[Rfam]
Nucleotides: 090
Stems, first nucleotide, its partner, number of pairs: 012037002017032006040084004047080002049076003056070004
Number, partner (000 for none) and nucleotide at each position: 001000u002000u003000a004000c005000a006000u007000a008000u009000g010000g011000g012037g013036c014000a015000a016000a017032c018031u019030a020029c021028c022027u023000g024000a025000a026000a027022g028021g029020g030019u031018a032017g033000g034000a035000c036013g037012c038000a039000a040084a041083g042082c043081u044000a045000g046000a047080g048079g049076g050075g051074c052000u053000a054000a055000a056070u057069c058068u059067u060000c061000c062000a063000u064000g065000a066000g067059g068058a069057g070056a071000u072000a073000u074051g075050c076049c077000a078000g079048c080047c081043a082042g083041c084040u085000g086000c087000a088000g089000c090000u